[Rfam]
RNA sequence: UCUAAAAUCGUGUGAUUUCGGUAUCUCCCAUUGAUAUUGAGUUCUCCUAGAAUACCUCGGUGAUGUACCGAGGUUUUU
Numbered sequence: 001u002c003u004a005a006a007a008u009c010g011u012g013u014g015a016u017u018u019c020g021g022u023a024u025c026u027c028c029c030a031u032u033g034a035u036a037u038u039g040a041g042u043u044c045u046c047c048u049a050g051a052a053u054a055c056c057u058c059g060g061u062g063a064u065g066u067a068c069c070g071a072g073g074u075u076u077u078u
Stems, first nucleotide, its partner, number of pairs: 054074008
The family of this 78-nucleotide RNA sequence from Crocosphaera subtropica is "Photosynthesis regulatory RNA1". The source organism's lineage runs through Bacteria, Bacillati, Oscillatoriophycideae, Aphanothecaceae and Crocosphaera subtropica. The family's consensus secondary structure was predicted with CMfinder. It is annotated as a small RNA. About the family: Formerly known as Syr1 discovered in Synechocystis sp PCC 6803, is a regulatory factor controlling photosynthetic functions. PsrR1 interacts with the ribosome binding regions of several photosynthesis-related mRNAs.